RNA sequence: AAUGAAUUUUGUUAGGUGAGGCUCCUAUGCAAACACAGGCUAUUGCCCAAAAACGUCGAGAGACACCAAUGGGUAGAACAGGAAUUGUCGUGAAGGCUUUUCAUAAGAUAGCUAAGAUUUUUCUUUACGUUGUAUAGUGCUAAAGCUCAACAUAUUACUUAAAAU
Numbered sequence: 001a002a003u004g005a006a007u008u009u010u011g012u013u014a015g016g017u018g019a020g021g022c023u024c025c026u027a028u029g030c031a032a033a034c035a036c037a038g039g040c041u042a043u044u045g046c047c048c049a050a051a052a053a054c055g056u057c058g059a060g061a062g063a064c065a066c067c068a069a070u071g072g073g074u075a076g077a078a079c080a081g082g083a084a085u086u087g088u089c090g091u092g093a094a095g096g097c098u099u100u101u102c103a104u105a106a107g108a109u110a111g112c113u114a115a116g117a118u119u120u121u122u123c124u125u126u127a128c129g130u131u132g133u134a135u136a137g138u139g140c141u142a143a144a145g146c147u148c149a150a151c152a153u154a155u156u157a158c159u160u161a162a163a164a165u
Base pairs, nucleotide, nucleotide: 006160009157011151012150013094015147016146017145020141021140022139025137026136027135028134029133030132031131032130039112040111041110042109043108045074046073047072048071049070055064056063057062082102083101084100087097088096089095114125115124116123
Rfam assigns this 165-nucleotide sequence from Vagococcus teuberi to the family "M-box riboswitch aptamer (ykoK leader)". Rfam's curators write: M-box riboswitch, also know as ykoK leader is described as a metaloregulatory RNA that sense divalent metals and function as a genetic control element of genes related to divalent metal transport in bacteria. For this family Rfam cites "Magnesium-sensing riboswitches in bacteria" (Ramesh and Winkler, RNA Biol, 2010). Lineage of the source: Bacteria > Bacillota > Bacilli > Lactobacillales > Vagococcus. The base pairs follow the family's consensus structure. The family has 159 seed sequences and 1,095 matches in Rfam 15.1.